A member of the RNA family "Glycine riboswitch aptamer" from Anaeromicrobium sediminis, 81 nucleotides long. Rfam links the family to the GO term glycine biosynthetic process.
[Rfam]
RNA sequence: CUCUGGAAAGUUCGAAUAUUUCGGCGCCGAAGGAGAAAUACACCAAAAGGUGUAGAAACUCUCAGGUAUAAAAAGACAGAG
Numbered sequence: 001c002u003c004u005g006g007a008a009a010g011u012u013c014g015a016a017u018a019u020u021u022c023g024g025c026g027c028c029g030a031a032g033g034a035g036a037a038a039u040a041c042a043c044c045a046a047a048a049g050g051u052g053u054a055g056a057a058a059c060u061c062u063c064a065g066g067u068a069u070a071a072a073a074a075g076a077c078a079g080a081g
Base pairs, nucleotide, nucleotide: 001081002080003079004078005077012024013023014022015021026067027066028065029063030062033061034060035059039054040053041052042051
This family represents the bacterial glycine riboswitch.
A reference for the family is Mandal et al. (2004), "A glycine-dependent riboswitch that uses cooperative binding to control gene expression", Science.
The source organism's lineage runs through Bacteria, Bacillati, Bacillota, Peptostreptococcales and Anaeromicrobium.
The match comes from Rfam's covariance-model search (48 bits).